[Rfam]
c-di-AMP riboswitch aptamer (ydaO/yuaA leader): a 164-nucleotide RNA from Streptomyces fagopyri. NCBI's taxonomy places the organism under Bacteria, Bacillati, Actinomycetota, Streptomycetaceae, Streptomyces. A search with the family's covariance model found it, with a score of 58 bits.
RNA sequence: ACGCGUCAAGCGCCGUAGGCAGGAGCGGGGGACCCAAGGUAAGCGCCGGGCCCGGUAGUUGACCGGGAGCGGCUUGGGGUGAAGACGUGCGCCGACGGCGCACGGCCGGGCACUCACCCGCCCGAACCCGACAGCUCACCUCGCAGGCGUCGGUGAGGGGAUCA
Numbered sequence: 001a002c003g004c005g006u007c008a009a010g011c012g013c014c015g016u017a018g019g020c021a022g023g024a025g026c027g028g029g030g031g032a033c034c035c036a037a038g039g040u041a042a043g044c045g046c047c048g049g050g051c052c053c054g055g056u057a058g059u060u061g062a063c064c065g066g067g068a069g070c071g072g073c074u075u076g077g078g079g080u081g082a083a084g085a086c087g088u089g090c091g092c093c094g095a096c097g098g099c100g101c102a103c104g105g106c107c108g109g110g111c112a113c114u115c116a117c118c119c120g121c122c123c124g125a126a127c128c129c130g131a132c133a134g135c136u137c138a139c140c141u142c143g144c145a146g147g148c149g150u151c152g153g154u155g156a157g158g159g160g161a162u163c164a
Stems, first nucleotide, its partner, number of pairs: 011149004025144006035076004077129003086104005108123004